RNA sequence: UCGUCCGCCUGCUGGGGGCAGAUGAAGUGGACGUGGGUGUCGAUACCGCCGGCGGUGAGGAUCUUGCCGUUGCCGGCGAUGACCUCGGUCUCCGGGCCGAUCACCAGGUCGGGGUGGACGCCGUCCAUGGUGUCGGGGUUGCCGGCCUUGCCCAGGGCGGUGAUCCGGCCGUCGCGGAUGCCGACGUCGGCCUUGACGAUGCCCCAGUGGUCGAUCACCACGGCGCCGGUGAUGACGGUGUCCGGGGCGCCCUCGGCGCGGGUGGUCCGCGACUGGCCCAUCGACUCGCGGAUGA
Dot-bracket structure: ((((((((.(((((.((..(.......(((.((.(.((....)).))))))...(((.......)))..)..))((..(.(.(....((..((.(((....((...(((.(.........).)))..))..)))..))..)).).).)..)).....))))).....((((..((((((.((.......(((.((........(........).....)).)))....(....(...(((.......))).)....)...))..))))))...))))..........))))))))

A member of the RNA family "5' ureB small RNA" from Streptomyces sp. NRRL F-4489, 295 nucleotides long. The literature on the family includes a 2013 paper in J Bacteriol by Wen et al., "Helicobacter pylori 5'ureB-sRNA, a cis-encoded antisense small RNA, negatively regulates ureAB expression by transcription termination". Rfam links the family to the GO term negative regulation of gene expression. Lineage of the source: Bacteria > Bacillati > Actinomycetota > Kitasatosporales > Streptomyces. The match comes from Rfam's covariance-model search (98 bits).